[Rfam]
RNA sequence: UUGGCGCCUGGCGAUGGGGCUCGCCACAUAACCGCCUCUCCGGCUGACAGUCCCUGUACAACA
Numbered sequence: 001u002u003g004g005c006g007c008c009u010g011g012c013g014a015u016g017g018g019g020c021u022c023g024c025c026a027c028a029u030a031a032c033c034g035c036c037u038c039u040c041c042g043g044c045u046g047a048c049a050g051u052c053c054c055u056g057u058a059c060a061a062c063a
Stems, first nucleotide, its partner, number of pairs: 010025004016054006034044003
Rfam assigns this 63-nucleotide RNA from Alkalispirochaeta americana to the family "Fluoride riboswitch aptamer (crcB RNA motif)". Taxonomically the source falls in Alkalispirochaeta (Bacteria, Pseudomonadati, Spirochaetota, Spirochaetia). Its family is annotated with response to fluoride and positive regulation of gene expression in the Gene Ontology.